[Rfam]
The family of this 114-nucleotide sequence from Stutzerimonas stutzeri is "Pseudomon-1/ErsA RNA".

RNA sequence: AUGCUCCUUGUUGUGUUAAGUGUUGGCAGAUCUCUGGACCCCGCCCUAGCGGUCCGGAUUCGACCUCGAACUUCCCCCUCCCCCAAUGAAGUUCGAGGUUUUUUUUGCCUGGAG
Numbered sequence: 001a002u003g004c005u006c007c008u009u010g011u012u013g014u015g016u017u018a019a020g021u022g023u024u025g026g027c028a029g030a031u032c033u034c035u036g037g038a039c040c041c042c043g044c045c046c047u048a049g050c051g052g053u054c055c056g057g058a059u060u061c062g063a064c065c066u067c068g069a070a071c072u073u074c075c076c077c078c079u080c081c082c083c084c085a086a087u088g089a090a091g092u093u094c095g096a097g098g099u100u101u102u103u104u105u106u107g108c109c110u111g112g113a114g
Stems, first nucleotide, its partner, number of pairs: 033058008062102002064098011
Rfam links the family to the GO terms sRNA-mediated gene silencing, mRNA binding and response to antibiotic. Functions to regulate the AlgC enzyme. Based on this information, the new name ErsA for the RNA was adopted. Rfam's curators put it in the seed alignment.